[Rfam]
RNA sequence: GUUGCAGAGCCAUUUUGGCAUUCUGUCCACCUCCAUGCACACCAUGGACCUAUAUUCUUUUGGAGGUGGCCAGCAUGCCAAAGUGGCUCUGUAAA
Dot-bracket structure: ..........(...((((((...((.((((((((...........................)))))))).))...))))))...)..........
The family of this 95-nucleotide sequence from Vitis rotundifolia is "MIR394 microRNA precursor family".
Rfam 15.1 lists 724 matches to the family in 216 species.
For this family Rfam cites "Computational identification of plant microRNAs and their targets, including a stress-induced miRNA" (Jones-Rhoades and Bartel, Mol Cell, 2004).
Its family is annotated with miRNA-mediated post-transcriptional gene silencing and RISC complex in the Gene Ontology.
The match comes from Rfam's covariance-model search (72 bits).